This 71-nucleotide RNA from Ophiophagus hannah belongs to the Rfam family "mir-148/mir-152 microRNA precursor family".
The organism belongs to Ophiophagus, within Eukaryota.
It is one of the family's seed sequences.
On this family, see Lagos-Quintana et al., Curr Biol 2002: "Identification of tissue-specific microRNAs from mouse".
Its family is annotated with RISC complex and miRNA-mediated post-transcriptional gene silencing in the Gene Ontology.
RNA sequence: GAAAGAAAGUUCUGUGACACUUUGACUCUGAUUAUAAUAGAAGUCAGUGCACUACAGAACUUUCUCUUCAG
Numbered sequence: 001g002a003a004a005g006a007a008a009g010u011u012c013u014g015u016g017a018c019a020c021u022u023u024g025a026c027u028c029u030g031a032u033u034a035u036a037a038u039a040g041a042a043g044u045c046a047g048u049g050c051a052c053u054a055c056a057g058a059a060c061u062u063u064c065u066c067u068u069c070a071g
Base pairs, nucleotide, nucleotide: 002067004065005064006063007062008061009060010059011058012057013056014055018049019048020047021046024045025044026043027042
Dot-bracket structure: .(.(((((((((((...((((..((((..............)))))))).....))))))))))).)....